[Rfam]
RNA: Mason-Pfizer monkey virus packaging signal
RNA sequence: UGGUGCCCAACGUAAGAGCUUGAGUACGAGGGACACAGUGAGGGAUGCCGUCAAGGUCAGCCGGCACAGAAGGAUUAAGAAACCCAGAGGAAAGAGCGUCGUGGGAACCUGCCAGGGACUCGCGCUCCGGUAAGGGGACUGCGAAUAUGGAACAGGAAAUCAGCCAGCAUUAGUUGUUCAUAGAGACUUUAAGUAAGGCUUUAAAGGCACAGGGAGUAAAGGUGAAAAUAAAACGAUUGUGUUAUAUUUUCACUAUAUUCAGGAUGUCUGCCCUU
Numbered sequence: 001u002g003g004u005g006c007c008c009a010a011c012g013u014a015a016g017a018g019c020u021u022g023a024g025u026a027c028g029a030g031g032g033a034c035a036c037a038g039u040g041a042g043g044g045a046u047g048c049c050g051u052c053a054a055g056g057u058c059a060g061c062c063g064g065c066a067c068a069g070a071a072g073g074a075u076u077a078a079g080a081a082a083c084c085c086a087g088a089g090g091a092a093a094g095a096g097c098g099u100c101g102u103g104g105g106a107a108c109c110u111g112c113c114a115g116g117g118a119c120u121c122g123c124g125c126u127c128c129g130g131u132a133a134g135g136g137g138a139c140u141g142c143g144a145a146u147a148u149g150g151a152a153c154a155g156g157a158a159a160u161c162a163g164c165c166a167g168c169a170u171u172a173g174u175u176g177u178u179c180a181u182a183g184a185g186a187c188u189u190u191a192a193g194u195a196a197g198g199c200u201u202u203a204a205a206g207g208c209a210c211a212g213g214g215a216g217u218a219a220a221g222g223u224g225a226a227a228a229u230a231a232a233a234c235g236a237u238u239g240u241g242u243u244a245u246a247u248u249u250u251c252a253c254u255a256u257a258u259u260c261a262g263g264a265u266g267u268c269u270g271c272c273c274u275u
Base pairs, nucleotide, nucleotide: 006032007031008030012027013026014025038046039045082131083130084129089127090126094121095120096119100116102114103113104112137153140151142149143148160203162201163199164198165197212251213250214249215248216247217246221238222237223236261274262273263272265270